Notes:
FMN riboswitch aptamer (RFN element): a 117-nucleotide sequence from Phascolarctobacterium succinatutens.
[Rfam]
RNA sequence: UGUAACCUUUGGGGCAGGGUGCAAUUCCCGAUCGGCGGUAAAGUCCGCUAGCGCAGCAACGCAUGAACCGGUGCGAUUCCGGUACCGACAGUAUAGUCUGGAUGAUAAAAGGUGGCA
Numbered sequence: 001u002g003u004a005a006c007c008u009u010u011g012g013g014g015c016a017g018g019g020u021g022c023a024a025u026u027c028c029c030g031a032u033c034g035g036c037g038g039u040a041a042a043g044u045c046c047g048c049u050a051g052c053g054c055a056g057c058a059a060c061g062c063a064u065g066a067a068c069c070g071g072u073g074c075g076a077u078u079c080c081g082g083u084a085c086c087g088a089c090a091g092u093a094u095a096g097u098c099u100g101g102a103u104g105a106u107a108a109a110a111g112g113u114g115g116c117a
Base pairs, nucleotide, nucleotide: 003115005113006112007111008110009109010108017029018028019027031097032096033087034086035048036047037046038045043085044084067083068082069081070080071079089100090099091098
Description
The source organism's lineage runs through Bacteria, Negativicutes, Acidaminococcaceae, Phascolarctobacterium and Phascolarctobacterium succinatutens. Rfam links the family to the GO term FMN binding.